Record summary:
A member of the RNA family "Histone 3' UTR stem-loop" from Regulus satrapa, 46 nucleotides long. The organism belongs to Regulus, within Eukaryota. It scores 44 bits against the family's covariance model. The literature on the family includes a 2002 paper in RNA by DeJong et al., "NMR structure and dynamics of the RNA-binding site for the histone mRNA stem-loop binding protein".
RNA sequence: CCAAAGGCUCUUUUCAGAGCCACCCAUUUCGUCUGAAAAGAGUUGU
Numbered sequence: 001c002c003a004a005a006g007g008c009u010c011u012u013u014u015c016a017g018a019g020c021c022a023c024c025c026a027u028u029u030c031g032u033c034u035g036a037a038a039a040g041a042g043u044u045g046u
Base pairs, nucleotide, nucleotide: 006021007020008019009018010017011016